Shown here is a 161-nucleotide RNA from Clostridium frigidicarnis, a member of the family "M-box riboswitch aptamer (ykoK leader)".
Rfam describes the family as follows. M-box riboswitch, also know as ykoK leader is described as a metaloregulatory RNA that sense divalent metals and function as a genetic control element of genes related to divalent metal transport in bacteria. It was first reported upstream of the B.subtilis ykoK gene and genes with related functions in other bacteria.
Its family is annotated with regulation of gene expression and response to magnesium ion in the Gene Ontology.

Nucleotides: 161
Base pairs, nucleotide, nucleotide: 005157006156008154011147013098015142016141017140020136021135022134025132026131028129029128030127031126032125039116040115041114042113043112046074048072049071055066056065057064058063082107083106084105085104088101089100090099
Number, partner (000 for none) and nucleotide at each position: 001000a002000a003000u004000a005157u006156a007000c008154c009000u010000c011147g012000g013098u014000a015142g016141g017140u018000g019000a020136g021135g022134u023000u024000a025132c026131u027000a028129u029128a030127a031126g032125g033000a034000u035000a036000u037000g038000g039116g040115u041114u042113g043112c044000u045000g046074c047000c048072g049071u050000a051000a052000a053000a054000g055066u056065a057064u058063g059000g060000a061000a062000a063058c064057a065056u066055a067000c068000u069000g070000c071049a072048c073000u074046g075000g076000u077000u078000a079000g080000c081000a082107g083106g084105u085104u086000u087000g088101g089100u090099c091000g092000a093000a094000a095000u096000u097000a098013a099090g100089g101088c102000u103000u104085a105084a106083c107082c108000u109000a110000a111000u112043g113042c114041a115040a116039u117000u118000u119000c120000a121000c122000g123000a124000g125032c126031c127030u128029u129028a130000c131026a132025g133000a134022g135021c136020c137000a138000a139000a140017a141016c142015u143000u144000g145000a146000a147011c148000g149000a150000g151000a152000a153000c154008g155000a156006u157005a158000g159000g160000u161000u